[Rfam]
RNA sequence: UACUCCGGUGUCUACUGAUCUGGAAUCAGUCUCUGUUGAUUACUGGCUCAGUUCAGCAGGAACAGGAG
Numbered sequence: 001u002a003c004u005c006c007g008g009u010g011u012c013u014a015c016u017g018a019u020c021u022g023g024a025a026u027c028a029g030u031c032u033c034u035g036u037u038g039a040u041u042a043c044u045g046g047c048u049c050a051g052u053u054c055a056g057c058a059g060g061a062a063c064a065g066g067a068g
Stems, first nucleotide, its partner, number of pairs: 003068004008063002011060003015056004020051004026046005
A member of the RNA family "mir-24 microRNA precursor family" from Salmo trutta, 68 nucleotides long.
For this family Rfam cites "microRNAs: tiny regulators with great potential" (Ambros, Cell, 2001).
NCBI's taxonomy places the organism under Eukaryota, Neopterygii, Osteoglossocephalai, Salmonidae, Salmo.
About the family: This family represents the microRNA (miRNA) mir-24 family. miRNAs are transcribed as ~70nt precursors (modelled here) and subsequently processed by the Dicer enzyme to give a ~22nt product.
The base pairs follow the family's consensus structure, which was predicted with RNAalifold.